[Rfam]
RNA sequence: CUUCAGAGACCCCAGCCACAGCGGCCUGUCACCGGCCCGCUGCCCGUACGUGGCGAGCAACGCCUGUGCCUC
Numbered sequence: 001c002u003u004c005a006g007a008g009a010c011c012c013c014a015g016c017c018a019c020a021g022c023g024g025c026c027u028g029u030c031a032c033c034g035g036c037c038c039g040c041u042g043c044c045c046g047u048a049c050g051u052g053g054c055g056a057g058c059a060a061c062g063c064c065u066g067u068g069c070c071u072c
Base pairs, nucleotide, nucleotide: 015025016024017023033066038062039061040057041056044053045052046051

Rfam assigns this 72-nucleotide RNA from Streptomyces avermitilis to the family "ASpks TB sRNA".
Lineage of the source: Bacteria > Bacillati > Kitasatosporales > Streptomyces > Streptomyces avermitilis.
The base pairs follow the family's consensus structure, which is taken from published work.
By type it is an antisense RNA.